The family of this 82-nucleotide sequence from Simplexvirus humanalpha1 is "mir-H20 microRNA precursor family". Rfam links the family to the GO terms RISC complex and miRNA-mediated post-transcriptional gene silencing. The source organism's lineage runs through Viruses, Duplodnaviria, Heunggongvirae, Orthoherpesviridae and Simplexvirus humanalpha1.

RNA sequence: AGAAGAGGGAAGAAGAGGGGUCGGGAUCCAAAGGACGGACCCAGACCACCUUUGGUUGCAGACCCCUUUCUCCCCCCUCUUC
Numbered sequence: 001a002g003a004a005g006a007g008g009g010a011a012g013a014a015g016a017g018g019g020g021u022c023g024g025g026a027u028c029c030a031a032a033g034g035a036c037g038g039a040c041c042c043a044g045a046c047c048a049c050c051u052u053u054g055g056u057u058g059c060a061g062a063c064c065c066c067u068u069u070c071u072c073c074c075c076c077c078u079c080u081u082c
Stems, first nucleotide, its partner, number of pairs: 004078002007075003011071003015068008024059001026057001028055007